[Rfam]
RNA sequence: UUGGCGGCGUACUCCCAUUCGGCGUCGCCGUCGGCCAGGACGUCCGCGCCGAAGAACUGCCCGUCGGCCAGCACGUCCAGCUCGACCGGCUCGCCGUACUCGCCGCGCCCGAUCCGGGAGACCUUGCCGUGCGCGAUCAGCACGACCCGGUCCACCGGGCGCCCCGGCUCGACGAUCACGUCGCCGGGCUCGUACUCGUGCUGGGUGAGCCGUCCGGCCAUGUCCUCCAGCGCCUGCGUCCCGGCGGGCGUCGCGUGCAGCCCGCGCAGCGGCGGCAGCUCGGCCAGCUCGGCGGGGACGACCUGGACGUCGGCGCCGGUGUUGAGGAACGUCAGCCGUCCGUCGCCCACCGUGUAGGUGAGGCGGCGGUUCACCCGGUAGGCGCCGCCGCGCGCCUCCACCCAGGGCAGCAUCCGCAGGAGCCAGCGCGGUGUGAUGCUCUGCAUCAUCGGCGCGGACUUGGUGGUCGUCGCCAGGUUCCGUGCCGCCCUGGUGCCGAGGCUGAGCUGCUGUG
Numbered sequence: 001u002u003g004g005c006g007g008c009g010u011a012c013u014c015c016c017a018u019u020c021g022g023c024g025u026c027g028c029c030g031u032c033g034g035c036c037a038g039g040a041c042g043u044c045c046g047c048g049c050c051g052a053a054g055a056a057c058u059g060c061c062c063g064u065c066g067g068c069c070a071g072c073a074c075g076u077c078c079a080g081c082u083c084g085a086c087c088g089g090c091u092c093g094c095c096g097u098a099c100u101c102g103c104c105g106c107g108c109c110c111g112a113u114c115c116g117g118g119a120g121a122c123c124u125u126g127c128c129g130u131g132c133g134c135g136a137u138c139a140g141c142a143c144g145a146c147c148c149g150g151u152c153c154a155c156c157g158g159g160c161g162c163c164c165c166g167g168c169u170c171g172a173c174g175a176u177c178a179c180g181u182c183g184c185c186g187g188g189c190u191c192g193u194a195c196u197c198g199u200g201c202u203g204g205g206u207g208a209g210c211c212g213u214c215c216g217g218c219c220a221u222g223u224c225c226u227c228c229a230g231c232g233c234c235u236g237c238g239u240c241c242c243g244g245c246g247g248g249c250g251u252c253g254c255g256u257g258c259a260g261c262c263c264g265c266g267c268a269g270c271g272g273c274g275g276c277a278g279c280u281c282g283g284c285c286a287g288c289u290c291g292g293c294g295g296g297g298a299c300g301a302c303c304u305g306g307a308c309g310u311c312g313g314c315g316c317c318g319g320u321g322u323u324g325a326g327g328a329a330c331g332u333c334a335g336c337c338g339u340c341c342g343u344c345g346c347c348c349a350c351c352g353u354g355u356a357g358g359u360g361a362g363g364c365g366g367c368g369g370u371u372c373a374c375c376c377g378g379u380a381g382g383c384g385c386c387g388c389c390g391c392g393c394g395c396c397u398c399c400a401c402c403c404a405g406g407g408c409a410g411c412a413u414c415c416g417c418a419g420g421a422g423c424c425a426g427c428g429c430g431g432u433g434u435g436a437u438g439c440u441c442u443g444c445a446u447c448a449u450c451g452g453c454g455c456g457g458a459c460u461u462g463g464u465g466g467u468c469g470u471c472g473c474c475a476g477g478u479u480c481c482g483u484g485c486c487g488c489c490c491u492g493g494u495g496c497c498g499a500g501g502c503u504g505a506g507c508u509g510c511u512g513u514g
Stems, first nucleotide, its partner, number of pairs: 006402002009399001011397001014394001016392001021337002025334001027332002031328002036324003040320002046316007054237001057230003063224001065111003075103001077102001079100002083096002086093001118221001120219001122217002126213002129210002131206002134203002140197001144195001150191001155188002158185003165174002238308004247302001249300004261295002265291002268289003273282002341354003363391007372384001374382002403443007411435003415430003419427001450487003454483005459477006494514001496512001498510001499508002